[Rfam]
RNA sequence: CAUGGGUUUAUGUUAUAUUCCAUCUCUUGCACACUGGAUGGAGUUUUGCUGACUUCUGCAGGCUGGUGUGCAGGGGGUGGAAUACAUCAUUCAAAUCAUG
Number, nucleotide and partner (000 for none) at each position: 001c100002a099003u098004g097005g096006g000007u093008u000009u000010a090011u089012g088013u000014u086015a000016u084017a083018u082019u081020c080021c079022a078023u077024c076025u075026c074027u073028u072029g071030c070031a069032c068033a067034c066035u065036g064037g063038a000039u061040g000041g000042a000043g000044u000045u000046u000047u000048g000049c000050u000051g000052a000053c000054u000055u000056c000057u000058g000059c000060a000061g039062g000063c037064u036065g035066g034067u033068g032069u031070g030071c029072a028073g027074g026075g025076g024077g023078u022079g021080g020081a019082a018083u017084a016085c000086a014087u000088c012089a011090u010091u000092c000093a007094a000095a000096u005097c004098a003099u002100g001

Shown here is a 100-nucleotide sequence from Corchorus olitorius, a member of the family "MIR2950 microRNA precursor family". The base pairs follow the family's consensus structure, which was predicted with RNAalifold. Gene Ontology terms of the family: RISC complex and miRNA-mediated post-transcriptional gene silencing. The match comes from Rfam's covariance-model search (76 bits).